[Rfam]
RNA: small nucleolar RNA snoR137
Organism: Camellia sinensis
RNA sequence: GUUGCUUCUUACUGGUGAACUCUCUCUGUUUUUUAACAAACAAAAGUGAGAGAUGUUCAUGUUUCCGAAGCAUAGAUCGAUUUGCUUUUGCCAGAAUUAAACAGCUCGCUGCAUCACACGAUUGUGUGUUUUUGCAUCGUGCUACCUGUCUCCUGGUACAAUU
Number, nucleotide and partner (000 for none) at each position: 001g000002u000003u072004g071005c070006u069007u068008c067009u000010u000011a000012c000013u000014g000015g000016u059017g058018a057019a056020c055021u053022c052023u051024c050025u049026c000027u000028g000029u000030u000031u000032u000033u000034u000035a000036a000037c000038a000039a000040a000041c000042a000043a000044a000045a000046g000047u000048g000049a025050g024051a023052g022053a021054u000055g020056u019057u018058c017059a016060u000061g000062u000063u000064u000065c000066c000067g008068a007069a006070g005071c004072a003073u000074a000075g000076a000077u000078c000079g000080a000081u000082u000083u000084g000085c000086u000087u000088u000089u000090g157091c156092c155093a154094g153095a000096a151097u000098u000099a000100a000101a000102c000103a143104g142105c141106u000107c139108g138109c000110u136111g135112c134113a133114u000115c000116a000117c000118a000119c000120g000121a000122u000123u000124g000125u000126g000127u000128g000129u000130u000131u000132u000133u113134g112135c111136a110137u000138c108139g107140u000141g105142c104143u103144a000145c000146c000147u000148g000149u000150c000151u096152c000153c094154u093155g092156g091157u090158a000159c000160a000161a000162u000163u000